[Rfam]
RNA sequence: GAGACACCCUUAUGGACUUGCUUCAGUGGGGCUUUGGUGCUCACUGAGUCUGCACCUUGAGUGUGUCACU
Numbered sequence: 001g002a003g004a005c006a007c008c009c010u011u012a013u014g015g016a017c018u019u020g021c022u023u024c025a026g027u028g029g030g031g032c033u034u035u036g037g038u039g040c041u042c043a044c045u046g047a048g049u050c051u052g053c054a055c056c057u058u059g060a061g062u063g064u065g066u067c068a069c070u
Stems, first nucleotide, its partner, number of pairs: 001069001003067005009061004014056001015050003023047008031038002
Shown here is a 70-nucleotide RNA sequence from Myotis davidii, a member of the family "mir-9229 microRNA precursor family". A search with the family's covariance model found it, with a score of 73 bits. Rfam 15.1 lists 27,225 matches to the family in 9 species.